[Rfam]
RNA: Betaproteobacteria-1 RNA
RNA sequence: CGCUUUGCUGGUUGGUAAUGGUUUAACGGCAGCAGCAAAGAUGAAGUGUCCUACUGUUGGAAAAGGUGCUGAAACAGGACAAAGGGUGGCGAAGUUAGAGCCCUUGCAUCGAACGUCUGGCGGGU
Numbered sequence: 001c002g003c004u005u006u007g008c009u010g011g012u013u014g015g016u017a018a019u020g021g022u023u024u025a026a027c028g029g030c031a032g033c034a035g036c037a038a039a040g041a042u043g044a045a046g047u048g049u050c051c052u053a054c055u056g057u058u059g060g061a062a063a064a065g066g067u068g069c070u071g072a073a074a075c076a077g078g079a080c081a082a083a084g085g086g087u088g089g090c091g092a093a094g095u096u097a098g099a100g101c102c103c104u105u106g107c108a109u110c111g112a113a114c115g116u117c118u119g120g121c122g123g124g125u
Base pairs, nucleotide, nucleotide: 003040004039005038006037007036008035009034010033029057030056031055032054048080049079050078051077052076066109067108068107069106082105083104084103085102086101087100094121095120096119097118098117099116